Annotation: A member of the RNA family "Ascomycota telomerase RNA" from Hypoxylon sp. CO27-5, 217 nucleotides of a longer RNA. The organism belongs to Hypoxylon, within Eukaryota. Gene Ontology terms of the family: telomerase catalytic core complex, telomere maintenance via telomerase and telomerase activity. Rfam classes the family as a non-coding RNA gene. Rfam 15.1 lists 475 matches to the family in 456 species. The match comes from Rfam's covariance-model search (328 bits).
[Rfam]
RNA sequence: AACCCUACAGUCCUCCGAUUCUCAUUUUCCGAAAGGAAUGUUCUCGUAACCCCUCAGUCGAAUCCGAAUUAACCUUGCAUAACACGUCGCAUCUCGGGGUUCAUAGAAUCUGAUGAGCUUUGCCGCGUGAGGAUCGUUAUGUGAAGGUAGCUGGCAGGCCUUGGCUACUGGAUCGACUGUCAGGGAAUGCGUCUCGGAACUUAACCCUAAGCAUCUC
Numbered sequence: 001a002a003c004c005c006u007a008c009a010g011u012c013c014u015c016c017g018a019u020u021c022u023c024a025u026u027u028u029c030c031g032a033a034a035g036g037a038a039u040g041u042u043c044u045c046g047u048a049a050c051c052c053c054u055c056a057g058u059c060g061a062a063u064c065c066g067a068a069u070u071a072a073c074c075u076u077g078c079a080u081a082a083c084a085c086g087u088c089g090c091a092u093c094u095c096g097g098g099g100u101u102c103a104u105a106g107a108a109u110c111u112g113a114u115g116a117g118c119u120u121u122g123c124c125g126c127g128u129g130a131g132g133a134u135c136g137u138u139a140u141g142u143g144a145a146g147g148u149a150g151c152u153g154g155c156a157g158g159c160c161u162u163g164g165c166u167a168c169u170g171g172a173u174c175g176a177c178u179g180u181c182a183g184g185g186a187a188u189g190c191g192u193c194u195c196g197g198a199a200c201u202u203a204a205c206c207c208u209a210a211g212c213a214u215c216u217c
Stems, first nucleotide, its partner, number of pairs: 009201003015197004